[Rfam]
This 72-nucleotide RNA sequence from Caenorhabditis bovis belongs to the Rfam family "mir-242 microRNA precursor family".
The source organism's lineage runs through Eukaryota, Opisthokonta, Metazoa, Nematoda and Caenorhabditis.
It scores 62 bits against the family's covariance model.
Gene Ontology terms of the family: RISC complex and miRNA-mediated post-transcriptional gene silencing.
RNA sequence: UCGAGAAUCUUGCGUAGGCCUUUGUUUCGAUUGAAACGUUAUCGCAGCAAUCGUCCUGCGCAACAUUUUUCG
Numbered sequence: 001u002c003g004a005g006a007a008u009c010u011u012g013c014g015u016a017g018g019c020c021u022u023u024g025u026u027u028c029g030a031u032u033g034a035a036a037c038g039u040u041a042u043c044g045c046a047g048c049a050a051u052c053g054u055c056c057u058g059c060g061c062a063a064c065a066u067u068u069u070u071c072g
Stems, first nucleotide, its partner, number of pairs: 003070006010063005016057003022050005028044004